[Rfam]
RNA sequence: CUCUUAUCAAGAGUUGGUCGAGGGUUUGGCCCGAUGACACCAACAGCAACCGGCUGUAAUUCCAUUGCGAAAUGGGGCGCUGCAAUUUAGCGCCGGAGAGUACUUACUCUCUUUAAAGCACGGUGCUAAUUCCAUCAGAAAGAUAUUUUCUGGGAGAUAAGAG
Numbered sequence: 001c002u003c004u005u006a007u008c009a010a011g012a013g014u015u016g017g018u019c020g021a022g023g024g025u026u027u028g029g030c031c032c033g034a035u036g037a038c039a040c041c042a043a044c045a046g047c048a049a050c051c052g053g054c055u056g057u058a059a060u061u062c063c064a065u066u067g068c069g070a071a072a073u074g075g076g077g078c079g080c081u082g083c084a085a086u087u088u089a090g091c092g093c094c095g096g097a098g099a100g101u102a103c104u105u106a107c108u109c110u111c112u113u114u115a116a117a118g119c120a121c122g123g124u125g126c127u128a129a130u131u132c133c134a135u136c137a138g139a140a141a142g143a144u145a146u147u148u149u150c151u152g153g154g155a156g157a158u159a160a161g162a163g
Base pairs, nucleotide, nucleotide: 001163002162003161004160005159006158007157008156013044015042016041017040018039022032023031024030027134028133029132045127046126047125048124050123051122052119131155136152137151138150139149140148141147

The record is a 163-nucleotide sequence from Metabacillus lacus, which matches "SAM riboswitch aptamer (S box leader)" in Rfam. Gene Ontology term of the family: regulation of gene expression.